Description
Small nucleolar RNA R16: a 91-nucleotide RNA sequence from Turnera subulata. The match comes from Rfam's covariance-model search (78 bits). Rfam classes the family as a C/D-box small nucleolar RNA. The source organism's lineage runs through Eukaryota, Viridiplantae, Tracheophyta, Mesangiospermae and Turnera.
[Rfam]
RNA sequence: UAUGGCAGCUGAUGACUCAAAUGUAAAUCUUAUCCUACACACUGAACACUUUUGUGUUGACUACAAACUCCGCUUAUUAUCUGAUGCCAUG
Numbered sequence: 001u002a003u004g005g006c007a008g009c010u011g012a013u014g015a016c017u018c019a020a021a022u023g024u025a026a027a028u029c030u031u032a033u034c035c036u037a038c039a040c041a042c043u044g045a046a047c048a049c050u051u052u053u054g055u056g057u058u059g060a061c062u063a064c065a066a067a068c069u070c071c072g073c074u075u076a077u078u079a080u081c082u083g084a085u086g087c088c089a090u091g
Stems, first nucleotide, its partner, number of pairs: 003089005
Dot-bracket structure: ..(((((.............................................................................)))))..